[Rfam]
RNA: Fst antitoxin sRNA
RNA sequence: GCGAGUAGUGAGGGGAUUUUUGUUGGUGUGGCUAUAUGUCACCUAUUAAUUAUUUGUUGCGUUUAUUAAGCCAAUGAGUAAAAAACGCAAUGGCACAGC
Numbered sequence: 001g002c003g004a005g006u007a008g009u010g011a012g013g014g015g016a017u018u019u020u021u022g023u024u025g026g027u028g029u030g031g032c033u034a035u036a037u038g039u040c041a042c043c044u045a046u047u048a049a050u051u052a053u054u055u056g057u058u059g060c061g062u063u064u065a066u067u068a069a070g071c072c073a074a075u076g077a078g079u080a081a082a083a084a085a086c087g088c089a090a091u092g093g094c095a096c097a098g099c
Stems, first nucleotide, its partner, number of pairs: 008096003028042005056091007065079003